[Rfam]
A member of the RNA family "Ribosomal protein L10 leader" from Lachnospiraceae bacterium 3-1, 156 nucleotides long. The family's RNA type in Rfam is cis-regulatory leader. NCBI's taxonomy places the organism under Bacteria, Bacillati, Bacillota, Lachnospirales, Lachnospiraceae. The base pairs follow the family's consensus structure, which was predicted with CMfinder.
RNA sequence: UACUAAACAAGCAUGUGACCGAAGACAGCAGGUGCUUUCGAGCGUAACAGUAUGACCUGCCGAGGCAAUUUACAGAAGUAUUUUAUUUCUGGUAAAGGAAUGAAAGAUUAUUUCAAGCCUCUUUGUCUCGUACGAAGAGGCUAUUUUAUUAUAAUA
Numbered sequence: 001u002a003c004u005a006a007a008c009a010a011g012c013a014u015g016u017g018a019c020c021g022a023a024g025a026c027a028g029c030a031g032g033u034g035c036u037u038u039c040g041a042g043c044g045u046a047a048c049a050g051u052a053u054g055a056c057c058u059g060c061c062g063a064g065g066c067a068a069u070u071u072a073c074a075g076a077a078g079u080a081u082u083u084u085a086u087u088u089c090u091g092g093u094a095a096a097g098g099a100a101u102g103a104a105a106g107a108u109u110a111u112u113u114c115a116a117g118c119c120u121c122u123u124u125g126u127c128u129c130g131u132a133c134g135a136a137g138a139g140g141c142u143a144u145u146u147u148a149u150u151a152u153a154a155u156a
Stems, first nucleotide, its partner, number of pairs: 028060006034043003117141010